PreQ1 (pre queuosine) riboswitch aptamer: a 45-nucleotide RNA from Weizmannia acidilactici. Gene Ontology term of the family: queuosine biosynthetic process. From the family's description: This family is a bacterial riboswitch that binds to the metabolite preQ1, an intermediate in the biosynthesis of the modified nucleoside queuosine from GTP. One example of this riboswitch is located in the leader of the Bacillus subtilis ykvJKLM (queCDEF) operon which encodes four genes necessary for queuosine production. PreQ1 binding to the riboswitch aptamer is thought to induce premature transcription termination within the leader to down-regulate expression of these genes. A search with the family's covariance model found it, with a score of 52 bits. Taxonomically the source falls in Heyndrickxia (Bacteria, Bacilli, Caryophanales, Bacillaceae).
RNA sequence: CAACCCGUGGUUCGAAACCAUCCCACGCAAAAAAACUAAGGAGAA
Number, nucleotide and partner (000 for none) at each position: 001c000002a000003a000004c000005c000006c027007g026008u025009g024010g023011u000012u000013c000014g000015a000016a037017a000018c000019c000020a000021u000022c000023c010024c009025a008026c007027g006028c000029a000030a000031a000032a000033a000034a000035a000036c000037u016038a000039a000040g000041g000042a000043g000044a000045a000